[Rfam]
RNA sequence: AGUGCUUCAUUUAUGUUUGUGCCUAUGAAUUUCUUCCAUUUUAUGGGCCUUGUGAGCAAGUGAAGCAAGAAAAACAAGGUUCCCCUUGCUAUCCAAUGCACAUCUGCUUUGUUGCAUUUGGACGUCGGGGAGCUACAUGU
Numbered sequence: 001a002g003u004g005c006u007u008c009a010u011u012u013a014u015g016u017u018u019g020u021g022c023c024u025a026u027g028a029a030u031u032u033c034u035u036c037c038a039u040u041u042u043a044u045g046g047g048c049c050u051u052g053u054g055a056g057c058a059a060g061u062g063a064a065g066c067a068a069g070a071a072a073a074a075c076a077a078g079g080u081u082c083c084c085c086u087u088g089c090u091a092u093c094c095a096a097u098g099c100a101c102a103u104c105u106g107c108u109u110u111g112u113u114g115c116a117u118u119u120g121g122a123c124g125u126c127g128g129g130g131a132g133c134u135a136c137a138u139g140u
Base pairs, nucleotide, nucleotide: 003058004057005056008054009053013051019050021048022047023046024045025044026043029042079133080132081131082130083129084128085127087124088123092122093121094120095119096118100112101111102110
Shown here is a 140-nucleotide RNA sequence from Elaeis guineensis, a member of the family "Small nucleolar RNA snoR136". By type it is an H/ACA-box small nucleolar RNA. A search with the family's covariance model found it, with a score of 65 bits. Gene Ontology terms of the family: RNA processing and nucleolus. A reference for the family is Chen and Wu (2009), "Mining small RNA sequencing data: a new approach to identify small nucleolar RNAs in Arabidopsis", Nucleic Acids Res.